[Rfam]
RNA: Bacterial RNase P class A
RNA sequence: GCUGCAGGCCACCUUAUCGCUGCCGUGUUUGGCACGGGAGAGGAAAGUCCGGACACCGUAGUGCAACAUAGCGGGUAACGCCCGUCCGCCGAAAGGCGAGGACCAGUGCAACAGAAAGCAAGUACAGUUAGGCUGUAGUGAAACCAGGUAAACUCUAUGUGGUGCAACGUCAUGUAUACCAACGCUUGAGGGUUGCACGCCCAAGUUGGAGGGUAGGCGGUUAGACCUUAAAAGUAAUUUUAAGGCUAGAUAAAUGAUAAGGACCCAUUUUGGGAACAGAAUCCGGCUUAUGGCCUGCUUUUUUG
Numbered sequence: 001g002c003u004g005c006a007g008g009c010c011a012c013c014u015u016a017u018c019g020c021u022g023c024c025g026u027g028u029u030u031g032g033c034a035c036g037g038g039a040g041a042g043g044a045a046a047g048u049c050c051g052g053a054c055a056c057c058g059u060a061g062u063g064c065a066a067c068a069u070a071g072c073g074g075g076u077a078a079c080g081c082c083c084g085u086c087c088g089c090c091g092a093a094a095g096g097c098g099a100g101g102a103c104c105a106g107u108g109c110a111a112c113a114g115a116a117a118g119c120a121a122g123u124a125c126a127g128u129u130a131g132g133c134u135g136u137a138g139u140g141a142a143a144c145c146a147g148g149u150a151a152a153c154u155c156u157a158u159g160u161g162g163u164g165c166a167a168c169g170u171c172a173u174g175u176a177u178a179c180c181a182a183c184g185c186u187u188g189a190g191g192g193u194u195g196c197a198c199g200c201c202c203a204a205g206u207u208g209g210a211g212g213g214u215a216g217g218c219g220g221u222u223a224g225a226c227c228u229u230a231a232a233a234g235u236a237a238u239u240u241u242a243a244g245g246c247u248a249g250a251u252a253a254a255u256g257a258u259a260a261g262g263a264c265c266c267a268u269u270u271u272g273g274g275a276a277c278a279g280a281a282u283c284c285g286g287c288u289u290a291u292g293g294c295c296u297g298c299u300u301u302u303u304u305g
Base pairs, nucleotide, nucleotide: 001301004298005297006296007295008294009293010292011291012262013261014260015259016258017257018256020040021039023037024036025035026034027033028032045289046288047287049286050285051284052283053282054164055163056162057161061198062197063196064195066160067159068158069157070156071085072084073083074082075081086100087098088097089096090095101155102154106153107152108149109148123137124136125135126134127133128132168219169218170217171216179209180208181207182206183205190202191201192200193199226245227244228243229242230241231240232239233238
Dot-bracket structure: (..(((((((((((((((.((.((((((...)))))).))....[[[.[[[[[((((...[[[[.((((((((((.....)))))(((((....)))).)((...((((.............((((((...))))))..........))..)))))))))))))...((((.......(((((......((((.]]]]))))..)))))......))))......((((((((....))))))))..........)))))))...................]]]]]]]].))))))))..)....